This 122-nucleotide sequence from Myotis davidii belongs to the Rfam family "Small nucleolar RNA SNORA77".
[Rfam]
RNA sequence: GCAGACGCACUGCGCCGGCCGCAGUCCCGGGCAGGGCUUUCUCCGUCGGCCACAGACACAUUCCAGGGCGCUGUGACCGCCUGGACCAGUCAAGGGCACUGCUGCUGCCCGGGGACACAGUU
Numbered sequence: 001g002c003a004g005a006c007g008c009a010c011u012g013c014g015c016c017g018g019c020c021g022c023a024g025u026c027c028c029g030g031g032c033a034g035g036g037c038u039u040u041c042u043c044c045g046u047c048g049g050c051c052a053c054a055g056a057c058a059c060a061u062u063c064c065a066g067g068g069c070g071c072u073g074u075g076a077c078c079g080c081c082u083g084g085a086c087c088a089g090u091c092a093a094g095g096g097c098a099c100u101g102c103u104g105c106u107g108c109c110c111g112g113g114g115a116c117a118c119a120g121u122u
Base pairs, nucleotide, nucleotide: 001050002049004047005046006045014037015036016035017032019030020029021028062113063112064111066109067108070105071104073102074101075100079097080096081095082094

The base pairs follow the family's consensus structure, which was predicted with RNAalifold. NCBI's taxonomy places the organism under Eukaryota, Chordata, Tetrapoda, Eutheria, Myotis. ACA63 (SNORA77) is a member of the H/ACA class of snoRNAs that guide the sites of modification of uridines to pseudouridines. This snoRNA was identified by computational screening and its expression in mouse experimentally verified by Northern blot and primer extension analysis. ACA63 is proposed to guide the pseudouridylation of 18S rRNA U814.